[Rfam]
RNA sequence: ACAAAGAAAAGGCAAAACACGCGAAAACGUGUUACGCAAAACCACCGGUCUAAGGGUUGAUUUGCUUUAUAGCAAGUUAAUCUACGACAGCGGAGUCACCUCG
Numbered sequence: 001a002c003a004a005a006g007a008a009a010a011g012g013c014a015a016a017a018c019a020c021g022c023g024a025a026a027a028c029g030u031g032u033u034a035c036g037c038a039a040a041a042c043c044a045c046c047g048g049u050c051u052a053a054g055g056g057u058u059g060a061u062u063u064g065c066u067u068u069a070u071a072g073c074a075a076g077u078u079a080a081u082c083u084a085c086g087a088c089a090g091c092g093g094a095g096u097c098a099c100c101u102c103g
Base pairs, nucleotide, nucleotide: 012037013036017032018031019030020029021028041096042095045093046092047091048088049087050086055082056081057080058079059078060077061076062075063074064073065072066071

This 103-nucleotide sequence from Colwellia sp. MT41 belongs to the Rfam family "c-di-GMP-I riboswitch aptamer". Lineage of the source: Bacteria > Pseudomonadati > Gammaproteobacteria > Colwelliaceae > Colwellia. The literature on the family includes a 2007 paper in Nucleic Acids Res by Weinberg et al., "Identification of 22 candidate structured RNAs in bacteria using the CMfinder comparative genomics pipeline". Gene Ontology term of the family: cyclic-di-GMP binding. Rfam's curators write: GEMM was predicted in a large-scale screen for bacterial structured RNA regulatory elements.